Group II catalytic intron D1-D4-7: a 151-nucleotide RNA from Comamonas testosteroni. Rfam 15.1 lists 1,296 matches to the family in 705 species. Taxonomically the source falls in Comamonas testosteroni (Bacteria, Pseudomonadota, Comamonadaceae, Comamonas).
RNA sequence: CCUUGUGUGCGACCGCAAGUAGCCUACGGUGACGUGCAAGACCAGUAAUGGACUUGUGCGAAGCUCACCCGACAAAGUACCCCCGCGCAAGCGGCAUCUCUUACCCGUAAGGGCAGCGGUGGACACUGCCAGCAGAAAAGCGGUGAAGGGG
Numbered sequence: 001c002c003u004u005g006u007g008u009g010c011g012a013c014c015g016c017a018a019g020u021a022g023c024c025u026a027c028g029g030u031g032a033c034g035u036g037c038a039a040g041a042c043c044a045g046u047a048a049u050g051g052a053c054u055u056g057u058g059c060g061a062a063g064c065u066c067a068c069c070c071g072a073c074a075a076a077g078u079a080c081c082c083c084c085g086c087g088c089a090a091g092c093g094g095c096a097u098c099u100c101u102u103a104c105c106c107g108u109a110a111g112g113g114c115a116g117c118g119g120u121g122g123a124c125a126c127u128g129c130c131a132g133c134a135g136a137a138a139a140g141c142g143g144u145g146a147a148g149g150g151g
Base pairs, nucleotide, nucleotide: 002019003018004017005016006015007014028069029068030067031066032065033060034059035058036057037056038055039054040053042051043050044049083094084093085092086091095121096120097119098118105112106111125144126143127142128141129140
Dot-bracket structure: .((((((......))))))........(((((((((((((.(((....))).))))))))....))))).............((((....))))((((......((....)).....))))...(((((..........))))).......